[Rfam]
RNA sequence: AGCCUUUUGUUUCCGUGCUGAGAUUUUAUCACCCACCAGACCACAAGAGCUGAUGAGACUCCCAAGAUAAGUGAAGUG
Numbered sequence: 001a002g003c004c005u006u007u008u009g010u011u012u013c014c015g016u017g018c019u020g021a022g023a024u025u026u027u028a029u030c031a032c033c034c035a036c037c038a039g040a041c042c043a044c045a046a047g048a049g050c051u052g053a054u055g056a057g058a059c060u061c062c063c064a065a066g067a068u069a070a071g072u073g074a075a076g077u078g
Base pairs, nucleotide, nucleotide: 002077003076005074006073008071010069012067013066016064017063020061021060022059024058025057026056027055028054029053030052
Background: The record is a 78-nucleotide RNA from Schistosoma margrebowiei, which matches "mir-3492 microRNA precursor family" in Rfam. Rfam 15.1 lists 21,496 matches to the family in 13 species. The organism belongs to Schistosoma, within Eukaryota. Rfam links the family to the GO terms RISC complex and miRNA-mediated post-transcriptional gene silencing.